[Rfam]
RNA: PyrR binding site
Nucleotides: 103
Base pairs, nucleotide, nucleotide: 003037005035006034007033008032009031013030014029015028016027017026018025038068040066041065043063045061046059047058048057049056050055073096075094076093077092078091079090080089081088
Number, partner (000 for none) and nucleotide at each position: 001000a002000a003037a004000a005035c006034c007033u008032u009031u010000a011000a012000g013030c014029u015028g016027g017026u018025c019000c020000c021000g022000a023000g024000a025018g026017g027016c028015c029014g030013g031009g032008a033007a034006g035005g036000a037003u038068g039000a040066a041065c042000a043063u044000a045061a046059a047058u048057g049056a050055u051000a052000u053000a054000c055050a056049u057048u058047a059046u060000a061045u062000c063043a064000g065041g066040u067000c068038u069000u070000u071000u072000u073096a074000u075094g076093c077092c078091u079090u080089c081088c082000c083000a084000u085000a086000g087000c088081g089080g090079a091078a092077g093076g094075c095000u096073u097000u098000u099000u100000u101000g102000a103000u